[Rfam]
Description:
This 103-nucleotide sequence from Elaeis guineensis belongs to the Rfam family "Small nucleolar RNA snoR31/Z110/Z27". This family contains several related snoRNAs including R31, Z27 and Z110. Rfam classes the family as a C/D-box small nucleolar RNA. The base pairs follow the family's consensus structure, which was predicted with PFOLD. A search with the family's covariance model found it, with a score of 61 bits. Rfam links the family to the GO terms RNA processing and nucleolus. On this family, see Chen et al., Nucleic Acids Res 2003: "The high diversity of snoRNAs in plants: identification and comparative study of 120 snoRNA genes from Oryza sativa".
RNA sequence: AUCAUCAGGUGAUGAAAUCUUGAAAUGAAAUCUUAGGACACCUUCCUACACAGCACAAUUUUUUGGGCUGUGGAUGAGAAAACAUUUCAAUUCUGAUGAUGAU
Numbered sequence: 001a002u003c004a005u006c007a008g009g010u011g012a013u014g015a016a017a018u019c020u021u022g023a024a025a026u027g028a029a030a031u032c033u034u035a036g037g038a039c040a041c042c043u044u045c046c047u048a049c050a051c052a053g054c055a056c057a058a059u060u061u062u063u064u065g066g067g068c069u070g071u072g073g074a075u076g077a078g079a080a081a082a083c084a085u086u087u088c089a090a091u092u093c094u095g096a097u098g099a100u101g102a103u
Base pairs, nucleotide, nucleotide: 001103002102003101004100005099006098007097